[Rfam]
RNA sequence: AGGCAGGGUACCUAGGGUUCCGCCCAUGCAUGGCAUGGGGUCCGGUCCGAGAGGCACCAUCGGCGCGGCAAACUCCGCGCCGAUACACGGCGGGGCAAAAUCCCGGGAGAU
Numbered sequence: 001a002g003g004c005a006g007g008g009u010a011c012c013u014a015g016g017g018u019u020c021c022g023c024c025c026a027u028g029c030a031u032g033g034c035a036u037g038g039g040g041u042c043c044g045g046u047c048c049g050a051g052a053g054g055c056a057c058c059a060u061c062g063g064c065g066c067g068g069c070a071a072a073c074u075c076c077g078c079g080c081c082g083a084u085a086c087a088c089g090g091c092g093g094g095g096c097a098a099a100a101u102c103c104c105g106g107g108a109g110a111u
Base pairs, nucleotide, nucleotide: 007058008057009056011054012053015048016047020045021044022042023039024038025037026036027035028034059084060083061082062081063080064079065078066077067076068075086106088109092104093103094102
RNA: Guanidine-I riboswitch aptamer